mir-26 microRNA precursor family: a 77-nucleotide RNA from Ornithorhynchus anatinus.
RNA sequence: CUCCCGCCCGGUUCAAGUAAUCCAGGAUAGGCUGUCGGCACCACGGCCUGUCCUCGGUUACUUGUCUCGGGAGGUGG
Numbered sequence: 001c002u003c004c005c006g007c008c009c010g011g012u013u014c015a016a017g018u019a020a021u022c023c024a025g026g027a028u029a030g031g032c033u034g035u036c037g038g039c040a041c042c043a044c045g046g047c048c049u050g051u052c053c054u055c056g057g058u059u060a061c062u063u064g065u066c067u068c069g070g071g072a073g074g075u076g077g
Stems, first nucleotide, its partner, number of pairs: 002076001004074002007071005014064009024054010
The literature on the family includes a 2002 paper in Curr Biol by Lagos-Quintana et al., "Identification of tissue-specific microRNAs from mouse". Its family is annotated with RISC complex and miRNA-mediated post-transcriptional gene silencing in the Gene Ontology. The sequence is in the family's curated seed alignment.